[Rfam]
RNA: XIST RNA A repeat
RNA sequence: UUGCCCAUUGGGGCCGCAGAUACCUGCUUAGAUUUUU
Numbered sequence: 001u002u003g004c005c006c007a008u009u010g011g012g013g014c015c016g017c018a019g020a021u022a023c024c025u026g027c028u029u030a031g032a033u034u035u036u037u
Stems, first nucleotide, its partner, number of pairs: 003014004017026003